[Rfam]
RNA sequence: UUAGUGCUUCCACAGGUCCUCCCCUAGGCAGGAGGCCAGGAUUUGAUAGCUGGUGCUGAGAGAAAACCUUGAUUGCAUCCUUGCCUUGGUAAUAUACCAGUGACAGCUGUCACUCAGUGGGAUAGAC
Numbered sequence: 001u002u003a004g005u006g007c008u009u010c011c012a013c014a015g016g017u018c019c020u021c022c023c024c025u026a027g028g029c030a031g032g033a034g035g036c037c038a039g040g041a042u043u044u045g046a047u048a049g050c051u052g053g054u055g056c057u058g059a060g061a062g063a064a065a066a067c068c069u070u071g072a073u074u075g076c077a078u079c080c081u082u083g084c085c086u087u088g089g090u091a092a093u094a095u096a097c098c099a100g101u102g103a104c105a106g107c108u109g110u111c112a113c114u115c116a117g118u119g120g121g122a123u124a125g126a127c
Base pairs, nucleotide, nucleotide: 003057004056005055006054007053008052013045014044015043017041018040019039020038022035023034025033067121068120069117070116071115072114074112075111077110078109081106082105083104085102086100087099088098089097
The record is a 127-nucleotide sequence from Fukomys damarensis, which matches "Small nucleolar RNA SNORA30/SNORA37 family" in Rfam.
The members of this family belong to the H/ACA class of snoRNAs that guide the sites of modification of uridines to pseudouridines. This family includes human ACA30 (SNORA30), ACA37 (SNORA37) and the mouse homolog MBI-26. Both ACA37 and ACA30 are predicted to guide the pseudouridylation of residue U4643 of 28S rRNA.
The family's RNA type in Rfam is H/ACA-box small nucleolar RNA.
Pairs were carried over by alignment from the consensus structure, which was predicted with RNAfold.
The organism belongs to Fukomys, within Eukaryota.
Rfam links the family to the GO terms RNA processing and nucleolus.
A reference for the family is Huttenhofer et al. (2001), "RNomics: an experimental approach that identifies 201 candidates for novel, small, non-messenger RNAs in mouse", EMBO J.
It scores 99 bits against the family's covariance model.